[Rfam]
RNA sequence: GCCGACAGCGAGGGUACAAUACCCUCGCAAGGGCUCGGUCAACCCGCCCCCGCAAGGUUUCGGGGUCGAUGAGCGGGGUGUGCUCACGCCGAGCCUACAGGGCCGGUGCAUCCGCCCGCGGGAUUAAUGACCGCUGGGUCUCUGUUGCCGGCCCACAAUAAAGUUUAA
Numbered sequence: 001g002c003c004g005a006c007a008g009c010g011a012g013g014g015u016a017c018a019a020u021a022c023c024c025u026c027g028c029a030a031g032g033g034c035u036c037g038g039u040c041a042a043c044c045c046g047c048c049c050c051c052g053c054a055a056g057g058u059u060u061c062g063g064g065g066u067c068g069a070u071g072a073g074c075g076g077g078g079u080g081u082g083c084u085c086a087c088g089c090c091g092a093g094c095c096u097a098c099a100g101g102g103c104c105g106g107u108g109c110a111u112c113c114g115c116c117c118g119c120g121g122g123a124u125u126a127a128u129g130a131c132c133g134c135u136g137g138g139u140c141u142c143u144g145u146u147g148c149c150g151g152c153c154c155a156c157a158a159u160a161a162a163g164u165u166u167a168a
Stems, first nucleotide, its partner, number of pairs: 008028007031096008043077005049064004100154007115138003118134004

This 168-nucleotide RNA from Pyrococcus horikoshii belongs to the Rfam family "HgcF RNA (Pab35)". The sequence is in the family's curated seed alignment. Rfam classes the family as an H/ACA-box small nucleolar RNA. The base pairs follow the family's consensus structure, which was predicted with PFOLD. Lineage of the source: Archaea > Thermococci > Thermococcales > Pyrococcus > Pyrococcus horikoshii. For this family Rfam cites "Noncoding RNA genes identified in AT-rich hyperthermophiles" (Klein et al., Proc Natl Acad Sci U S A, 2002). Gene Ontology term of the family: RNA processing. Rfam describes the family as follows. The HgcF ncRNA gene was identified computationally in AT-rich hyperthermophiles. The genes were named hgcA through hgcG ('high GC').